The family of this 73-nucleotide RNA from Branchiostoma floridae is "mir-4888 microRNA precursor family".
Gene Ontology terms of the family: RISC complex and miRNA-mediated post-transcriptional gene silencing.
It is one of the family's seed sequences.

RNA sequence: GUGUGGGGUGCAGAGCUUGUGCGAUUGGCGCUUGACGACGAAGAGCGCCACACGCGAGCUCUUCAUCCCAACC
Numbered sequence: 001g002u003g004u005g006g007g008g009u010g011c012a013g014a015g016c017u018u019g020u021g022c023g024a025u026u027g028g029c030g031c032u033u034g035a036c037g038a039c040g041a042a043g044a045g046c047g048c049c050a051c052a053c054g055c056g057a058g059c060u061c062u063u064c065a066u067c068c069c070a071a072c073c
Base pairs, nucleotide, nucleotide: 001072002071004070005069006068007067008066009065010064012062013061014060015059016058017057018056019055020054021053023051026050027049028048029047030046031045032044033043